RNA sequence: AGAGUCGACUGAGCAGUCGCUGUUUUAUCCUUGUGAUGAAAUGGAGGAAAGUCCGGGCUCCACUGGGCAGGGUGCCAGGUAACGCCUGGGAGGUGUGAACCUACGGAAAGUGCCGCAGAAAAUAAACCGCCCGUCAUCAGACGGGUAAGGGUGAAAAGGUGCGGUAAGAGCGCACCGCGCAACUGGUAACAGGUGUGGCAGGGUAAACCCCACCCGGAGCAAGAUCAAAUAGAGGGACAGACGCGUGGCCCGCGCGGUUCCUGGGUAGAUUGCUUGAGCUGUAAGGUGACUUGCAGCCUAGAUGAAUGGCUGUUCUCGACAGAACCCGGCUUACAGGUCGACUCUUUCU
Dot-bracket structure: ((((((((((((((((((.(((((((((.......)))))))))....[[[.[[[[[((((...[[[[.((((((((((.....)))))(((((....)))).)((...(((((............(((((((((....)))))))..)).......((((((.......))))))(((((.(((....))).)))).)..)))..)))))))))))))...((((......((((((...(((((.]]]]))))))))))).....))))......((((((((....))))))))..........)))))))..........]]]]]]]].).))))))))))....
Source information
Rfam assigns this 349-nucleotide sequence from Methylovulum psychrotolerans to the family "Bacterial RNase P class A". The organism belongs to Methylovulum, within Bacteria. It scores 349 bits against the family's covariance model. Pairs were carried over by alignment from the consensus structure, which is taken from published work. The family's RNA type in Rfam is ribozyme.